[Rfam]
RNA sequence: AGCUUUUACCAGGUAUCAGCAACUUCCUUUCAUUAGGGGAAGAAGUGAGGGAAGUACCAAACAGCAGCAAGCUUUUAAACUUUAAAUAGACAGUUCUGAGUGAUUGAACUUACUUUUUCAUUUUACUUCAUCCUCUAAGGAGUGCAAUCACUUGGCGUGCCUACUUCACUUCUUUUAAGCGAAGAACUGCGUCCAGGCAAC
Numbered sequence: 001a002g003c004u005u006u007u008a009c010c011a012g013g014u015a016u017c018a019g020c021a022a023c024u025u026c027c028u029u030u031c032a033u034u035a036g037g038g039g040a041a042g043a044a045g046u047g048a049g050g051g052a053a054g055u056a057c058c059a060a061a062c063a064g065c066a067g068c069a070a071g072c073u074u075u076u077a078a079a080c081u082u083u084a085a086a087u088a089g090a091c092a093g094u095u096c097u098g099a100g101u102g103a104u105u106g107a108a109c110u111u112a113c114u115u116u117u118u119c120a121u122u123u124u125a126c127u128u129c130a131u132c133c134u135c136u137a138a139g140g141a142g143u144g145c146a147a148u149c150a151c152u153u154g155g156c157g158u159g160c161c162u163a164c165u166u167c168a169c170u171u172c173u174u175u176u177a178a179g180c181g182a183a184g185a186a187c188u189g190c191g192u193c194c195a196g197g198c199a200a201c
Stems, first nucleotide, its partner, number of pairs: 002020003007015003029142003033138007040128003047122002050119001052118003069097001071095001073093002098113001100111001102109001151197005157192004164184004169179003
RNA: Connexin-43 internal ribosome entry site (IRES)
Organism: Loxodonta africana